Nucleotides: 200
Stems, first nucleotide, its partner, number of pairs: 002107006010042003014036003018029004048099003056093003060087001062085002065080001129192007146178003150174002155165004
Number, partner (000 for none) and nucleotide at each position: 001000c002107c003106a004105a005104c006103a007102u008000g009000g010042a011041u012040a013000g014036c015035c016034u017000g018029g019028g020027a021026g022000g023000u024000c025000a026021c027020u028019c029018u030000c031000c032000c033000c034016a035015g036014g037000c038000u039000c040012u041011g042010u043000g044000g045000a046000a047000a048099u049098g050097g051000u052000g053000u054000u055000g056093g057092g058091g059000a060087g061000c062085a063084u064000a065080g066000a067000c068000a069000u070000u071000u072000g073000g074000u075000c076000c077000a078000u079000g080065u081000a082000c083000a084063g085062u086000a087060c088000a089000g090000c091058c092057c093056c094000u095000u096000u097050c098049c099048a100000c101000a102007a103006u104005g105004u106003u107002g108000a109000a110000g111000a112000u113000g114000a115000a116000g117000c118000u119000g120000g121000g122000u123000c124000u125000c126000g127000u128000g129192c130191c131190u132189g133188c134187a135186u136000a137000u138000u139000c140000c141000u142000a143000u144000u145000g146178c147177u148176u149000c150174c151173c152000u153000g154000a155165g156164u157163c158162c159000u160000g161000u162158g163157g164156a165155u166000g167000a168000u169000g170000a171000c172000u173151g174150g175000u176148g177147a178146g179000a180000u181000a182000a183000a184000u185000c186135g187134u188133g189132c190131a191130g192129g193000a194000a195000a196000c197000a198000u199000g200000u
Shown here is a 200-nucleotide sequence from Chlorocebus sabaeus, a member of the family "Small nucleolar RNA SNORA73 family".
Gene Ontology terms of the family: nucleolus and RNA processing.
Pairs were carried over by alignment from the consensus structure, which is taken from published work.
The source organism's lineage runs through Eukaryota, Eumetazoa, Craniata, Haplorrhini and Chlorocebus.
From the family's description: U17 (SNORA73A and SNORA73B) also known as E1 belongs to the H/ACA class of small nucleolar RNAs (snoRNAs). Vertebrate U17 is intron-encoded and ranges in length from 200-230 nucleotides, longer than most snoRNAs.
On this family, see Enright et al., RNA 1996: "5'ETS rRNA processing facilitated by four small RNAs: U14, E3, U17, and U3".
It is annotated as an H/ACA-box small nucleolar RNA.